[Rfam]
RNA sequence: UUUGUCAACGGUAAUCGCAGGGAGGGCUGUUUUCCCGACCGAGAAUUAAGGAGUUGACAAACUCGCCACA
Numbered sequence: 001u002u003u004g005u006c007a008a009c010g011g012u013a014a015u016c017g018c019a020g021g022g023a024g025g026g027c028u029g030u031u032u033u034c035c036c037g038a039c040c041g042a043g044a045a046u047u048a049a050g051g052a053g054u055u056g057a058c059a060a061a062c063u064c065g066c067c068a069c070a
Stems, first nucleotide, its partner, number of pairs: 001061009
RNA: Bacillus-plasmid RNA
Organism: Pontibacillus litoralis